[Rfam]
RNA sequence: AACUAAGCUGUCUAGGGUUCCGUUUAACCAUCGUUAAAGUCUGGUCCAAGAGAGAGCGUACGGAAUAUCCGUAUACACGGAAGGAUAAAAGCCUGGGAGAG
Numbered sequence: 001a002a003c004u005a006a007g008c009u010g011u012c013u014a015g016g017g018u019u020c021c022g023u024u025u026a027a028c029c030a031u032c033g034u035u036a037a038a039g040u041c042u043g044g045u046c047c048a049a050g051a052g053a054g055a056g057c058g059u060a061c062g063g064a065a066u067a068u069c070c071g072u073a074u075a076c077a078c079g080g081a082a083g084g085a086u087a088a089a090a091g092c093c094u095g096g097g098a099g100a101g
Base pairs, nucleotide, nucleotide: 007057008056009055011053012052015047016046020044021043022041023038024037025036026035027034028033058074059073060072061071062070063069076096078099082094083093084092

Description: Rfam assigns this 101-nucleotide sequence from Terrilactibacillus tamarindi to the family "Guanidine-I riboswitch aptamer". A search with the family's covariance model found it, with a score of 90 bits. Pairs were carried over by alignment from the consensus structure.